[Rfam]
RNA sequence: GCAUGUAAAUGGUGUUCAGCACCAGGGACAGGUGUGUUUGUAUGUGGUUGGUGUUCAACACUAGGGACAGGUGUGUUUGUUU
Numbered sequence: 001g002c003a004u005g006u007a008a009a010u011g012g013u014g015u016u017c018a019g020c021a022c023c024a025g026g027g028a029c030a031g032g033u034g035u036g037u038u039u040g041u042a043u044g045u046g047g048u049u050g051g052u053g054u055u056c057a058a059c060a061c062u063a064g065g066g067a068c069a070g071g072u073g074u075g076u077u078u079g080u081u082u
Stems, first nucleotide, its partner, number of pairs: 001068001010063007018055007026043001028041005

About this RNA:
Rfam assigns this 82-nucleotide RNA sequence from Branchiostoma lanceolatum to the family "mir-2060 microRNA precursor family". The base pairs follow the family's consensus structure, which was predicted with RNAalifold. Taxonomically the source falls in Branchiostoma (Eukaryota, Eumetazoa, Bilateria, Chordata).